The record is a 58-nucleotide sequence from Peribacillus psychrosaccharolyticus, which matches "Ribosomal protein L13 leader" in Rfam.
Lineage of the source: Bacteria > Bacillati > Bacillota > Caryophanales > Peribacillus.
This family is a putative r-protein leader autoregulatory structure found in B. subtilis and other low-GC Gram-positive bacteria. It is located in the 5' untranslated regions of mRNAs encoding the L13-S9 (rplM-rpsI) ribosomal protein operon.
The base pairs follow the family's consensus structure, which was predicted with CMfinder.
By type it is a cis-regulatory leader.
[Rfam]
RNA sequence: GGUAUGAAUUUUAAUCCCGCGAUAAGCCCCGGAAUCUUAUUGUGAUUGAAAAUAAAUA
Numbered sequence: 001g002g003u004a005u006g007a008a009u010u011u012u013a014a015u016c017c018c019g020c021g022a023u024a025a026g027c028c029c030c031g032g033a034a035u036c037u038u039a040u041u042g043u044g045a046u047u048g049a050a051a052a053u054a055a056a057u058a
Stems, first nucleotide, its partner, number of pairs: 007053001009051004018044009